This 74-nucleotide RNA belongs to the Rfam family "RAGATH-18 RNA". By type it is a small RNA. From the family's description: Actinobacteria, Firmicutes, Fusobacteria, Thermotogae (1 example). The base pairs follow the family's consensus structure, which is taken from published work.

RNA sequence: CCUGUGGAGUGUUAUAUCAAAUUGUAUUAGAUUAUCCGCAAGGAUUUUCGAGGCGAGACACAGCGAAGCAGGAA
Numbered sequence: 001c002c003u004g005u006g007g008a009g010u011g012u013u014a015u016a017u018c019a020a021a022u023u024g025u026a027u028u029a030g031a032u033u034a035u036c037c038g039c040a041a042g043g044a045u046u047u048u049c050g051a052g053g054c055g056a057g058a059c060a061c062a063g064c065g066a067a068g069c070a071g072g073a074a
Stems, first nucleotide, its partner, number of pairs: 001072005009061005022056003030049002035044002